The family of this 78-nucleotide RNA from Petromyzon marinus is "mir-26 microRNA precursor family". The literature on the family includes a 2001 paper in Science by Lagos-Quintana et al., "Identification of novel genes coding for small expressed RNAs". NCBI's taxonomy places the organism under Eukaryota, Bilateria, Chordata, Cyclostomata, Petromyzon. Rfam 15.1 lists 2,251 matches to the family in 645 species.
RNA sequence: CUGACACCCUGUUCAAGUAAUCCAGGAUAGGCUGUGUUACUCGUGGGCCUUUCCUCGGUUGCUUGAUCCGGGUGUAGU
Numbered sequence: 001c002u003g004a005c006a007c008c009c010u011g012u013u014c015a016a017g018u019a020a021u022c023c024a025g026g027a028u029a030g031g032c033u034g035u036g037u038u039a040c041u042c043g044u045g046g047g048c049c050u051u052u053c054c055u056c057g058g059u060u061g062c063u064u065g066a067u068c069c070g071g072g073u074g075u076a077g078u
Base pairs, nucleotide, nucleotide: 002077004075005074007072008071009070011068014065015064016063017062018061019060020059021058022057024055025054026053027052029050030049031048032047033046